[Rfam]
RNA sequence: AGCAGUAGACCUUCGACUAAGUACCGACACGUCCUGUGUCGAACGUCGAAUUCACCACAUCCUGCGGA
Numbered sequence: 001a002g003c004a005g006u007a008g009a010c011c012u013u014c015g016a017c018u019a020a021g022u023a024c025c026g027a028c029a030c031g032u033c034c035u036g037u038g039u040c041g042a043a044c045g046u047c048g049a050a051u052u053c054a055c056c057a058c059a060u061c062c063u064g065c066g067g068a
Base pairs, nucleotide, nucleotide: 012050013049014048015047016046017045026040027039028038029037030036055067056066058064
Bacillaceae-1 RNA: a 68-nucleotide sequence from Oceanobacillus profundus. The source organism's lineage runs through Bacteria, Bacillati, Bacilli, Caryophanales and Oceanobacillus. The base pairs follow the family's consensus structure, which is taken from published work.